[Rfam]
RNA sequence: CAUAGUCUUCAUGAGGUUGAACGUUAUAUUGAAAGCGUUGACUUCGUGAGAGGCUAAGG
Numbered sequence: 001c002a003u004a005g006u007c008u009u010c011a012u013g014a015g016g017u018u019g020a021a022c023g024u025u026a027u028a029u030u031g032a033a034a035g036c037g038u039u040g041a042c043u044u045c046g047u048g049a050g051a052g053g054c055u056a057a058g059g
Stems, first nucleotide, its partner, number of pairs: 001058001003056006009049009020039006